RNA sequence: CCUGGUCCGUGUAACUGGCGAAUUCAGACGGGGCACCGUCGGGGAGCACGGAGCAUAAGAGCCGCUCGCCUGGGCAUCCUCC
Numbered sequence: 001c002c003u004g005g006u007c008c009g010u011g012u013a014a015c016u017g018g019c020g021a022a023u024u025c026a027g028a029c030g031g032g033g034c035a036c037c038g039u040c041g042g043g044g045a046g047c048a049c050g051g052a053g054c055a056u057a058a059g060a061g062c063c064g065c066u067c068g069c070c071u072g073g074g075c076a077u078c079c080u081c082c
Base pairs, nucleotide, nucleotide: 003055004054006052007051008050009049010048011047012046015043016042017070018069019068020067021066028039029038030037031036059077061075062074063073